[Rfam]
RNA sequence: AUCCCCUAGGGAUCUUGUCAAAAUGCAGAUUCUGAUUCAGAGGAUCUGGGGGCAGGCCUGAGAUGCUGCAUUUCCAACAAGCUCCCAGGGGUUGCUUC
Numbered sequence: 001a002u003c004c005c006c007u008a009g010g011g012a013u014c015u016u017g018u019c020a021a022a023a024u025g026c027a028g029a030u031u032c033u034g035a036u037u038c039a040g041a042g043g044a045u046c047u048g049g050g051g052g053c054a055g056g057c058c059u060g061a062g063a064u065g066c067u068g069c070a071u072u073u074c075c076a077a078c079a080a081g082c083u084c085c086c087a088g089g090g091g092u093u094g095c096u097u098c
Base pairs, nucleotide, nucleotide: 003091004090005089009085010084011083014081015080016079017078018077021073022072023071025069026068027067028066031063032062033061
Dot-bracket structure: ..(((...(((..(((((..(((.((((..(((...........................)))..)))).)))...))))).)))...))).......

Notes: The family of this 98-nucleotide RNA sequence from Odobenus rosmarus is "mir-544 microRNA precursor family". Gene Ontology terms of the family: RISC complex and miRNA-mediated post-transcriptional gene silencing. For this family Rfam cites "Mammalian microRNAs: experimental evaluation of novel and previously annotated genes" (Chiang et al., Genes Dev, 2010). It scores 71 bits against the family's covariance model. NCBI's taxonomy places the organism under Eukaryota, Dipnotetrapodomorpha, Tetrapoda, Odobenidae, Odobenus rosmarus. Rfam 15.1 lists 10,750 matches to the family in 132 species.